[Rfam]
RNA sequence: AAGGCAAAUGAGGAGAAAAGUAGACAGGGACUCAGUACUCCCUUUUUAAGUUUUUUUUUAAAGGGGGAAAGAUGAUCUAGUCUAAAUGGGAAACUCUCUGAUGUUUU
Dot-bracket structure: .(((((...............................................................................................))))).
Small nucleolar RNA R44/J54/Z268 family: a 107-nucleotide sequence from Carex littledalei. Clan: SNORD74 clan. The organism belongs to Carex subgen. Euthyceras, within Eukaryota. The family has 29 seed sequences and 1,168 matches in Rfam 15.1. It scores 63 bits against the family's covariance model. Gene Ontology terms of the family: RNA processing and nucleolus.